The record is a 134-nucleotide sequence from Castor canadensis, which matches "Small nucleolar RNA SNORA51" in Rfam.
Taxonomically the source falls in Castor (Eukaryota, Euteleostomi, Theria, Castoridae).
Gene Ontology terms of the family: nucleolus and RNA processing.
The base pairs follow the family's consensus structure, which was predicted with PFOLD.
The match comes from Rfam's covariance-model search (127 bits).
It is annotated as an H/ACA-box small nucleolar RNA.
From the family's description: ACA51 is a member of the H/ACA class of snoRNA that guide the sites of modification of uridines to pseudouridines.

RNA sequence: GGCCUCCUAGUGCUUACCACAGGCUGUGUUCUUACACUGACUGUAUAGAUAAGGAGGAGGAAAAGUAAACAUACCUCAUAUACAUUUCAACCCAGGCCCUGUGCCUGGUCUGUAUUGUGAAUAGGACGACAUGU
Numbered sequence: 001g002g003c004c005u006c007c008u009a010g011u012g013c014u015u016a017c018c019a020c021a022g023g024c025u026g027u028g029u030u031c032u033u034a035c036a037c038u039g040a041c042u043g044u045a046u047a048g049a050u051a052a053g054g055a056g057g058a059g060g061a062a063a064a065g066u067a068a069a070c071a072u073a074c075c076u077c078a079u080a081u082a083c084a085u086u087u088c089a090a091c092c093c094a095g096g097c098c099c100u101g102u103g104c105c106u107g108g109u110c111u112g113u114a115u116u117g118u119g120a121a122u123a124g125g126a127c128g129a130c131a132u133g134u
Base pairs, nucleotide, nucleotide: 003060004059005058006057007056008055020043021042022041026037027036028035029034075125076124078122079121088112089111092108093107094106095105096104097103